[Rfam]
RNA sequence: GGAGGCGACAGGAGUCUGGUGGCUCCCCUGGUCUUCAAAACCAGUGGUUCGUCCAAAACGAACGGUGGGUUCGAUUCCCAUCCGCCUCC
Numbered sequence: 001g002g003a004g005g006c007g008a009c010a011g012g013a014g015u016c017u018g019g020u021g022g023c024u025c026c027c028c029u030g031g032u033c034u035u036c037a038a039a040a041c042c043a044g045u046g047g048u049u050c051g052u053c054c055a056a057a058a059c060g061a062a063c064g065g066u067g068g069g070u071u072c073g074a075u076u077c078c079c080a081u082c083c084g085c086c087u088c089c
Base pairs, nucleotide, nucleotide: 001089002088003087004086005085006084007083008081011026012025013024014023015022016021028044029043030042031041032040047063048062049061050060051059066080067079068078069077
RNA: Selenocysteine transfer RNA
Organism: Skermanella stibiiresistens